[Rfam]
RNA sequence: GCCUAUGAUGUUUUUCAAUCCAACUUGUUUGAGGGGCGUUGGAUCCCAAGACCCUGUUUUACAGGGAGAACCUACUUGGUGUAUCUGCGUUUUCCUUUGACUGAAACAUUGUAAACUGAGGC
Numbered sequence: 001g002c003c004u005a006u007g008a009u010g011u012u013u014u015u016c017a018a019u020c021c022a023a024c025u026u027g028u029u030u031g032a033g034g035g036g037c038g039u040u041g042g043a044u045c046c047c048a049a050g051a052c053c054c055u056g057u058u059u060u061a062c063a064g065g066g067a068g069a070a071c072c073u074a075c076u077u078g079g080u081g082u083a084u085c086u087g088c089g090u091u092u093u094c095c096u097u098u099g100a101c102u103g104a105a106a107c108a109u110u111g112u113a114a115a116c117u118g119a120g121g122c
Stems, first nucleotide, its partner, number of pairs: 001122003052066005
RNA: Small nucleolar RNA Z278
Organism: Castanea mollissima